[Rfam]
RNA sequence: UUGUAACAAGCGGCACGACCAGCUCCUGCUGAAUCCCCCAGGUCCGGAAGGAAGCAAGGGUAGGCGGUUGUAGCGGUGCGAUGCCGCUUACUU
Numbered sequence: 001u002u003g004u005a006a007c008a009a010g011c012g013g014c015a016c017g018a019c020c021a022g023c024u025c026c027u028g029c030u031g032a033a034u035c036c037c038c039c040a041g042g043u044c045c046g047g048a049a050g051g052a053a054g055c056a057a058g059g060g061u062a063g064g065c066g067g068u069u070g071u072a073g074c075g076g077u078g079c080g081a082u083g084c085c086g087c088u089u090a091c092u093u
Stems, first nucleotide, its partner, number of pairs: 008093003011086005016080002018077002
About this RNA:
Rfam assigns this 93-nucleotide RNA sequence from Cecembia lonarensis to the family "Bacteroidales small SRP". For this family Rfam cites "A high-resolution transcriptome map identifies small RNA regulation of metabolism in the gut microbe Bacteroides thetaiotaomicron" (Ryan et al., Nat Commun, 2020). Pairs were carried over by alignment from the consensus structure, which is taken from published work. The match comes from Rfam's covariance-model search (78 bits). Gene Ontology terms of the family: SRP-dependent cotranslational protein targeting to membrane, signal sequence recognition and signal recognition particle, plasma membrane targeting. The source organism's lineage runs through Bacteria, Pseudomonadati, Bacteroidota, Cecembia and Cecembia lonarensis. Clan: SRP clan.